[Rfam]
RNA sequence: AUGACGAAUGCCGAUGGAACUACAGGCUGUUCACCUCCAGGUCGCGGGUUCGAAUCCCGUCGGGUCCGCCACUAUGGACCCGUAGCUCAGCGGUUAGAGCAGGACGUUUCGUCAAACCUUGUCGUCAUGCC
Numbered sequence: 001a002u003g004a005c006g007a008a009u010g011c012c013g014a015u016g017g018a019a020c021u022a023c024a025g026g027c028u029g030u031u032c033a034c035c036u037c038c039a040g041g042u043c044g045c046g047g048g049u050u051c052g053a054a055u056c057c058c059g060u061c062g063g064g065u066c067c068g069c070c071a072c073u074a075u076g077g078a079c080c081c082g083u084a085g086c087u088c089a090g091c092g093g094u095u096a097g098a099g100c101a102g103g104a105c106g107u108u109u110c111g112u113c114a115a116a117c118c119u120u121g122u123c124g125u126c127a128u129g130c131c
Stems, first nucleotide, its partner, number of pairs: 002127006013113007023102001044060005061082008085100004
Dot-bracket structure: .((((((.....(((((((...(....................(((((.......)))))((((((((......))))))))..((((........)))).)....)))))))........))))))....
Y RNA-like: a 131-nucleotide sequence from Mesorhizobium sanjuanii.
Lineage of the source: Bacteria > Pseudomonadati > Alphaproteobacteria > Phyllobacteriaceae > Mesorhizobium.
For this family Rfam cites "Bacterial noncoding Y RNAs are widespread and mimic tRNAs" (Chen et al., RNA, 2014).
From the family's description: In Deinococcus radiodurans Rsr is tethered via Y RNA to the exoribonuclease PNPase and channels single-stranded RNA into the PNPase cavity. Rsr and Y RNA enhance degradation of structured RNAs by PNPase. This role could be conserved, as Rsr and ncRNAs called YrlA and YrlB (Y RNA like) also associate with PNPase in an evolutionary distant bacterium Salmonella Typhimurium.
It is annotated as a small RNA.